Record summary:
This 66-nucleotide RNA belongs to the Rfam family "S15-Halobacteria ribosomal protein leader". Pairs were carried over by alignment from the consensus structure, which is taken from published work. It is one of the family's seed sequences. A reference for the family is Eckert and Weinberg (2020), "Discovery of 20 novel ribosomal leader candidates in bacteria and archaea", BMC Microbiol.

RNA sequence: AGUGGGAACGCACGGUCGUAACUCUGACUCGCCGUUCGCUUGGACGGCUCGGGAUUGCGGCGGUGU
Numbered sequence: 001a002g003u004g005g006g007a008a009c010g011c012a013c014g015g016u017c018g019u020a021a022c023u024c025u026g027a028c029u030c031g032c033c034g035u036u037c038g039c040u041u042g043g044a045c046g047g048c049u050c051g052g053g054a055u056u057g058c059g060g061c062g063g064u065g066u
Stems, first nucleotide, its partner, number of pairs: 010066004015061007024053002031048007